[Rfam]
RNA sequence: AUAAAAGCAGGUACCCGUUGCCUCUGUGAAUGGGUAUCUCGUAAACUUCAGGGAAAUCACUUGCAUCGUUAUUGGGUGAACCUCUGUAUGUGCUAGUAACAGAAGGUUCAGUAAAUGAUGGCACAUCA
Numbered sequence: 001a002u003a004a005a006a007g008c009a010g011g012u013a014c015c016c017g018u019u020g021c022c023u024c025u026g027u028g029a030a031u032g033g034g035u036a037u038c039u040c041g042u043a044a045a046c047u048u049c050a051g052g053g054a055a056a057u058c059a060c061u062u063g064c065a066u067c068g069u070u071a072u073u074g075g076g077u078g079a080a081c082c083u084c085u086g087u088a089u090g091u092g093c094u095a096g097u098a099a100c101a102g103a104a105g106g107u108u109c110a111g112u113a114a115a116u117g118a119u120g121g122c123a124c125a126u127c128a
Stems, first nucleotide, its partner, number of pairs: 005048003011037002014034004064120007077110007
RNA: Small nucleolar RNA snoR74
Organism: Tetracentron sinense